This 63-nucleotide RNA from Eptesicus fuscus belongs to the Rfam family "mir-9250 microRNA precursor family". NCBI's taxonomy places the organism under Eukaryota, Deuterostomia, Dipnotetrapodomorpha, Eutheria, Eptesicus.

RNA sequence: GUGGUCGGCACUGCAGUUCGGCCUUUACCGCGGUGAAGUGCUGCAACUGUAGUCGCUGGCCAG
Dot-bracket structure: .(((((((((((((((((((((((((((....)))))).)))).))))))))).)))))))).
Numbered sequence: 001g002u003g004g005u006c007g008g009c010a011c012u013g014c015a016g017u018u019c020g021g022c023c024u025u026u027a028c029c030g031c032g033g034u035g036a037a038g039u040g041c042u043g044c045a046a047c048u049g050u051a052g053u054c055g056c057u058g059g060c061c062a063g
Stems, first nucleotide, its partner, number of pairs: 002062008010053009019043004023038006